[Rfam]
RNA sequence: UGAGGGGAACGCGACUGGCGGCACGGGGAUGGGUGAACCAUCGGGGAGCUCGUCGCGGGGGUCGACCGCCUGGGCCUCCGCG
Numbered sequence: 001u002g003a004g005g006g007g008a009a010c011g012c013g014a015c016u017g018g019c020g021g022c023a024c025g026g027g028g029a030u031g032g033g034u035g036a037a038c039c040a041u042c043g044g045g046g047a048g049c050u051c052g053u054c055g056c057g058g059g060g061g062u063c064g065a066c067c068g069c070c071u072g073g074g075c076c077u078c079c080g081c082g
Stems, first nucleotide, its partner, number of pairs: 004054002007051002011049002015045002017070005029041004059077005
Dot-bracket structure: ...((.((..((..(([[[[[.......((((.....))))..))..)))).))....(((((..]]]]]..))))).....
RNA: ZMP/ZTP riboswitch aptamer (pfl RNA motif)
Organism: Micromonospora aurantiaca